[Rfam]
RNA: MIR473 microRNA precursor family
Organism: Vitis vinifera
Nucleotides: 080
Stems, first nucleotide, its partner, number of pairs: 006076010017066010
Number, partner (000 for none) and nucleotide at each position: 001000a002000u003000u004000g005000c006076u007075c008074a009073c010072u011071c012070u013069u014068u015067c016000u017066c018065a019064a020063g021062g022061g023060c024059u025058u026057c027000u028000a029000g030000c031000a032000u033000u034000g035000c036000c037000a038000g039000u040000a041000a042000c043000a044000a045000a046000a047000u048000g049000g050000c051000a052000a053000g054000c055000u056000c057026g058025a059024a060023g061022u062021c063020u064019u065018u066017g067015g068014g069013g070012a071011g072010a073009g074008u075007g076006g077000a078000c079000a080000a